RNA: Small nucleolar RNA SNORD34
Organism: Coffea canephora
RNA sequence: CAAGGCCAAUGAUGUAUUCCGAAGAGCCUACAUUGUCUGAUACAUAUUUUAUGAUUAGAUGAAUAUGACUGUUCUGAGGCCUUG
Numbered sequence: 001c002a003a004g005g006c007c008a009a010u011g012a013u014g015u016a017u018u019c020c021g022a023a024g025a026g027c028c029u030a031c032a033u034u035g036u037c038u039g040a041u042a043c044a045u046a047u048u049u050u051a052u053g054a055u056u057a058g059a060u061g062a063a064u065a066u067g068a069c070u071g072u073u074c075u076g077a078g079g080c081c082u083u084g
Base pairs, nucleotide, nucleotide: 001084002083004081005080006079007078